[Rfam]
RNA: c-di-AMP riboswitch aptamer (ydaO/yuaA leader)
RNA sequence: CAUUCGUAAUCGCUGAGUUUUCCGAAAUGGGAAAACGGGGGAACCAAUCGAUGGCGUUCAUUCGGUGUGAGAGCCGAACGUCGCCGUCCGGGGUGAAUCCCGAAGCGACCGCACCUAGGAUGCGGCCGCUUCGGGUAGGGCGACUCUCACCGCCCGAAUCCGACAGCUAACCUCGUAAGCGUUGAUGCGUGCAACC
Numbered sequence: 001c002a003u004u005c006g007u008a009a010u011c012g013c014u015g016a017g018u019u020u021u022c023c024g025a026a027a028u029g030g031g032a033a034a035a036c037g038g039g040g041g042a043a044c045c046a047a048u049c050g051a052u053g054g055c056g057u058u059c060a061u062u063c064g065g066u067g068u069g070a071g072a073g074c075c076g077a078a079c080g081u082c083g084c085c086g087u088c089c090g091g092g093g094u095g096a097a098u099c100c101c102g103a104a105g106c107g108a109c110c111g112c113a114c115c116u117a118g119g120a121u122g123c124g125g126c127c128g129c130u131u132c133g134g135g136u137a138g139g140g141c142g143a144c145u146c147u148c149a150c151c152g153c154c155c156g157a158a159u160c161c162g163a164c165a166g167c168u169a170a171c172c173u174c175g176u177a178a179g180c181g182u183u184g185a186u187g188c189g190u191g192c193a194a195c196c
Stems, first nucleotide, its partner, number of pairs: 011181004018034007035176006045090001091161003099135009138155004